[Rfam]
RNA sequence: GGCCCGAAUUUGAAGUAGAGUCGAUUAGUGGGAUCGGCUGACCCUACUUAACUACUCCACUUCAAGCUUGUGCCC
Numbered sequence: 001g002g003c004c005c006g007a008a009u010u011u012g013a014a015g016u017a018g019a020g021u022c023g024a025u026u027a028g029u030g031g032g033a034u035c036g037g038c039u040g041a042c043c044c045u046a047c048u049u050a051a052c053u054a055c056u057c058c059a060c061u062u063c064a065a066g067c068u069u070g071u072g073c074c075c
Stems, first nucleotide, its partner, number of pairs: 001074003005070003009066001011064006018057004023052001025050001027048004032043001034041002
This 75-nucleotide sequence from Haemonchus placei belongs to the Rfam family "mir-5928 microRNA precursor family". The family's consensus secondary structure was predicted with RNAalifold. It scores 67 bits against the family's covariance model.